[Rfam]
Glycine riboswitch aptamer: a 92-nucleotide sequence from a Frankiales bacterium. Rfam links the family to the GO term glycine biosynthetic process. Lineage of the source: Bacteria > Bacillati > Actinomycetota > Actinomycetes > Frankiales. From the family's description: This family represents the bacterial glycine riboswitch. It scores 50 bits against the family's covariance model. The pairing is the family consensus, mapped onto this sequence.
RNA sequence: GCAACUCUGGAAAGUGGGCACCCCCGGGUGCCCCACCGACGGUGCAAGCCCUCGCGGGUGAAGCUCUCAGGUUCCGUGACAGAGCGGGGAGG
Number, nucleotide and partner (000 for none) at each position: 001g000002c087003a000004a000005c084006u083007c082008u081009g080010g000011a000012a000013a000014g000015u000016g033017g032018g031019c030020a000021c000022c000023c000024c000025c000026g000027g000028g000029u000030g019031c018032c017033c016034c000035a072036c071037c070038g068039a067040c000041g000042g066043u000044g064045c000046a000047a000048g059049c058050c000051c000052u000053c000054g000055c000056g000057g000058g049059u048060g000061a000062a000063g000064c044065u000066c042067u039068c038069a000070g037071g036072u035073u000074c000075c000076g000077u000078g000079a000080c009081a008082g007083a006084g005085c000086g000087g002088g000089g000090a000091g000092g000